[Rfam]
RNA sequence: UCGUGCUAGACGGGAAGUUAGCGGUGUCCUGUACCUGCAAUCCGCUACAGCAGGGUUGAACUCCUCGUCGAGGCUUUAAAGUGUGAGGCCUGGCUUAUACAAGUGACGUUGAGAAUUGGGCCCCACGCAACGGAAACUCAUGAACCCCGUCAGGUCCGGAAGGAAGCAGCGGUAAGUGAGACCUUUCGUGUGCCGUGGGUCAACCUGGUUUGAGUUAACUGUAUAAGUAACGCUCAUACUUUACUGUCGACACGAGGUGCACGA
Numbered sequence: 001u002c003g004u005g006c007u008a009g010a011c012g013g014g015a016a017g018u019u020a021g022c023g024g025u026g027u028c029c030u031g032u033a034c035c036u037g038c039a040a041u042c043c044g045c046u047a048c049a050g051c052a053g054g055g056u057u058g059a060a061c062u063c064c065u066c067g068u069c070g071a072g073g074c075u076u077u078a079a080a081g082u083g084u085g086a087g088g089c090c091u092g093g094c095u096u097a098u099a100c101a102a103g104u105g106a107c108g109u110u111g112a113g114a115a116u117u118g119g120g121c122c123c124c125a126c127g128c129a130a131c132g133g134a135a136a137c138u139c140a141u142g143a144a145c146c147c148c149g150u151c152a153g154g155u156c157c158g159g160a161a162g163g164a165a166g167c168a169g170c171g172g173u174a175a176g177u178g179a180g181a182c183c184u185u186u187c188g189u190g191u192g193c194c195g196u197g198g199g200u201c202a203a204c205c206u207g208g209u210u211u212g213a214g215u216u217a218a219c220u221g222u223a224u225a226a227g228u229a230a231c232g233c234u235c236a237u238a239c240u241u242u243a244c245u246g247u248c249g250a251c252a253c254g255a256g257g258u259g260c261a262c263g264a
Base pairs, nucleotide, nucleotide: 001264002263003262004261005260006259009057010056011055012030013029014028015027017025018024019023034054035053036052037051038050063257064256065255066254067253068252072248073247074246078242079241080240081239082238083237084236085235086234087233091229092228095226096225097224098223099222100221103219104218105216106215107214113211114210115209116208117207118206119205120204122199123198124197125196126195127194128190129189131188132187133186134185135184137180138179139178140177141176147172148171149170150169155164156163157162
RNA: Bacterial large signal recognition particle RNA
Organism: Clostridium thermopalmarium